[Rfam]
RNA sequence: GAAAGACGUCGUGACUGGCGCUGGUGGAUGACCACAAGGGAGCGGCAACAGCAGGAACCAAACGGAUCGCGCGCCUGGGCCCGGGGG
Numbered sequence: 001g002a003a004a005g006a007c008g009u010c011g012u013g014a015c016u017g018g019c020g021c022u023g024g025u026g027g028a029u030g031a032c033c034a035c036a037a038g039g040g041a042g043c044g045g046c047a048a049c050a051g052c053a054g055g056a057a058c059c060a061a062a063c064g065g066a067u068c069g070c071g072c073g074c075c076u077g078g079g080c081c082c083g084g085g086g087g
Base pairs, nucleotide, nucleotide: 005049008046009045010044011043012042015039016038017075018074019073020072021071024035025034026033027032064082065081067079068078
Rfam assigns this 87-nucleotide RNA sequence from Arthrobacter rhombi to the family "ZMP/ZTP riboswitch aptamer (pfl RNA motif)".
Rfam 15.1 lists 3,295 matches to the family in 2,545 species.
The base pairs follow the family's consensus structure, which is taken from published work.
On this family, see Jones et al., Acta Crystallogr F Struct Biol Commun 2019: "Co-crystal structure of the Fusobacterium ulcerans ZTP riboswitch using an X-ray free-electron laser".
The source organism's lineage runs through Bacteria, Bacillati, Actinomycetes, Micrococcales and Arthrobacter.